[Rfam]
A member of the RNA family "Small nucleolar RNA SNORA65" from Silurus meridionalis, 127 nucleotides long. Rfam describes the family as follows. U65 belongs to the H/ACA class of snoRNAs which are thought to guide the sites of modification of uridines to pseudouridines. The family is grouped with related families in Rfam's "SNORA65 clan".
Nucleotides: 127
Base pairs, nucleotide, nucleotide: 006046007045008044009043017034018033020030021028022027062120063119064118065117066115067114069112071109072108076105077104078103079102080101084097085096086095
Number, partner (000 for none) and nucleotide at each position: 001000u002000c003000c004000g005000c006046c007045a008044c009043u010000a011000u012000a013000c014000u015000u016000g017034u018033c019000u020030g021028u022027a023000u024000g025000a026000g027022u028021g029000a030020c031000u032000u033018g034017a035000u036000a037000u038000a039000a040000u041000c042000c043009a044008g045007u046006g047000a048000a049000g050000g051000c052000u053000g054000a055000g056000a057000g058000a059000a060000a061000c062120c063119c064118a065117g066115c067114u068000c069112u070000a071109g072108g073000a074000a075000g076105c077104a078103g079102a080101g081000c082000u083000g084097c085096u086095c087000a088000g089000u090000c091000u092000g093000a094000u095086g096085g097084g098000u099000a100000a101080c102079u103078c104077u105076g106000u107000g108072c109071c110000g111000a112069a113000a114067g115066g116000c117065c118064u119063g120062g121000a122000a123000c124000a125000a126000a127000u

Record summary: The family's consensus secondary structure was predicted with RNAalifold. On this family, see Huttenhofer et al., EMBO J 2001: "RNomics: an experimental approach that identifies 201 candidates for novel, small, non-messenger RNAs in mouse". Gene Ontology terms of the family: nucleolus and RNA processing. Lineage of the source: Eukaryota > Opisthokonta > Eumetazoa > Vertebrata > Silurus.